[Rfam]
Nucleotides: 103
Base pairs, nucleotide, nucleotide: 003057004056005055006054011051012050013049014048016046017045018044019039020038021037022036023035024034025033072095073094074093075092076091077090078089079088
Number, partner (000 for none) and nucleotide at each position: 001000g002000a003057u004056g005055u006054g007000u008000u009000a010000c011051u012050a013049u014048a015000u016046g017045g018044g019039u020038g021037u022036a023035g024034u025033u026000c027000u028000u029000a030000a031000a032000u033025g034024a035023c036022u037021a038020c039019a040000c041000a042000g043000u044018c045017u046016u047000u048014u049013a050012u051011a052000u053000u054006c055005a056004u057003g058000a059000a060000c061000a062000u063000a064000a065000u066000a067000c068000u069000c070000c071000u072095g073094g074093a075092u076091g077090g078089c079088g080000c081000a082000a083000c084000c085000c086000a087000a088079c089078g090077u091076c092075a093074u094073c095072c096000u097000u098000u099000u100000u101000u102000u103000a